[Rfam]
RNA sequence: GUCAUGAACCCCGGUUUUAAAACCGGGGCUUGCAGAAAGGUUUCCUUUGUGUAAGCCCUCAUGAGCAGACUCAGUUUUGAAAGAGAAACGACGUUCGGGAAGAAAUAGGUACCAAUGCGUGCGAGGCCAGCGUGUUGCUCUACGAUUACAGGUUAAAUAGGCUGAGGGGUAAAGCCAGUGCUUGGAAUGUCAAACCUUCCCAGAACCUUGUCGAGGCCAACAUCAC
Numbered sequence: 001g002u003c004a005u006g007a008a009c010c011c012c013g014g015u016u017u018u019a020a021a022a023c024c025g026g027g028g029c030u031u032g033c034a035g036a037a038a039g040g041u042u043u044c045c046u047u048u049g050u051g052u053a054a055g056c057c058c059u060c061a062u063g064a065g066c067a068g069a070c071u072c073a074g075u076u077u078u079g080a081a082a083g084a085g086a087a088a089c090g091a092c093g094u095u096c097g098g099g100a101a102g103a104a105a106u107a108g109g110u111a112c113c114a115a116u117g118c119g120u121g122c123g124a125g126g127c128c129a130g131c132g133u134g135u136u137g138c139u140c141u142a143c144g145a146u147u148a149c150a151g152g153u154u155a156a157a158u159a160g161g162c163u164g165a166g167g168g169g170u171a172a173a174g175c176c177a178g179u180g181c182u183u184g185g186a187a188u189g190u191c192a193a194a195c196c197u198u199c200c201c202a203g204a205a206c207c208u209u210g211u212c213g214a215g216g217c218c219a220a221c222a223u224c225a226c
Stems, first nucleotide, its partner, number of pairs: 002064006010028002012025002015022002029055006068212003074089004093206004098201002101198002109143002113137008125218004145188003149184005157179002160176004165170001
RNA: HNH endonuclease-associated RNA and ORF (HEARO) RNA